A member of the RNA family "Mammalian CPEB3 ribozyme" from Alligator mississippiensis, 77 nucleotides long.

RNA sequence: GGUCACAAGUUUGAGGCCAUAGCAGAAGUGCUCAUGGCGUGACUCUGUUAGAUUCCAGUGAAUCUGUGAAUUCUGCU
Numbered sequence: 001g002g003u004c005a006c007a008a009g010u011u012u013g014a015g016g017c018c019a020u021a022g023c024a025g026a027a028g029u030g031c032u033c034a035u036g037g038c039g040u041g042a043c044u045c046u047g048u049u050a051g052a053u054u055c056c057a058g059u060g061a062a063u064c065u066g067u068g069a070a071u072u073c074u075g076c077u
Stems, first nucleotide, its partner, number of pairs: 013045003018041001021077007028040003049066007
Dot-bracket structure: ............[[[..[..((((((((((.......)))].]]]...(((((((....)))))))....)))))))

Rfam links the family to the GO term RNA nuclease activity. The source organism's lineage runs through Eukaryota, Gnathostomata, Tetrapoda, Crocodylia and Alligator.